[Rfam]
RNA sequence: GAUCAGUGAUGAAAACAGCCAAAUCUGAGCAUCAAAAGACCUUCUAGUCUACCUGAUACACGAUUUCUGUAGUUCCAUGA
Number, nucleotide and partner (000 for none) at each position: 001g000002a000003u000004c000005a000006g000007u000008g000009a000010u000011g000012a000013a000014a000015a000016c000017a000018g000019c000020c000021a000022a000023a000024u000025c000026u000027g000028a000029g059030c000031a057032u056033c055034a000035a000036a000037a050038g049039a048040c047041c000042u000043u000044c000045u000046a000047g040048u039049c038050u037051a000052c000053c000054u000055g033056a032057u031058a000059c029060a000061c000062g000063a000064u000065u000066u000067c000068u000069g000070u000071a000072g000073u000074u000075c000076c000077a000078u000079g000080a000
RNA: Small nucleolar RNA U2-19
Organism: Vicugna pacos